[Rfam]
RNA sequence: CUUCACGGACCCGAGCCACAGCGGCCGGUCCCCGGGGCGGCCGUGUCCGUACGUGGCCAGGAUCGACUGGGCCUC
Numbered sequence: 001c002u003u004c005a006c007g008g009a010c011c012c013g014a015g016c017c018a019c020a021g022c023g024g025c026c027g028g029u030c031c032c033c034g035g036g037g038c039g040g041c042c043g044u045g046u047c048c049g050u051a052c053g054u055g056g057c058c059a060g061g062a063u064c065g066a067c068u069g070g071g072c073c074u075c
Base pairs, nucleotide, nucleotide: 015025016024017023031071032070033069038065039064044059045058047056048055049054